[Rfam]
RNA: mir-30 microRNA precursor family
Organism: Leptobrachium leishanense
RNA sequence: UCAGUCACUGUAAACAUCCUUGACUGGAAGCUGUGAGCUACUCGAUGGAGCUUUCAGUCGGAUGUUUACAGCUGCUGG
Numbered sequence: 001u002c003a004g005u006c007a008c009u010g011u012a013a014a015c016a017u018c019c020u021u022g023a024c025u026g027g028a029a030g031c032u033g034u035g036a037g038c039u040a041c042u043c044g045a046u047g048g049a050g051c052u053u054u055c056a057g058u059c060g061g062a063u064g065u066u067u068a069c070a071g072c073u074g075c076u077g078g
Base pairs, nucleotide, nucleotide: 002077003076004075005074008071009070010069011068012067013066014065015064016063017062018061019060023058024057025056026055027054028053029052030051031050032049